[Rfam]
RNA: Selenocysteine insertion sequence 1
Organism: Menidia menidia
RNA sequence: GUUUCCUGGUGACGGCUGCAGAUUAAACCUCUGGCCUCUGCAGCCCGAUGGACGAAAC
Numbered sequence: 001g002u003u004u005c006c007u008g009g010u011g012a013c014g015g016c017u018g019c020a021g022a023u024u025a026a027a028c029c030u031c032u033g034g035c036c037u038c039u040g041c042a043g044c045c046c047g048a049u050g051g052a053c054g055a056a057a058c
Stems, first nucleotide, its partner, number of pairs: 001058005014045009029034001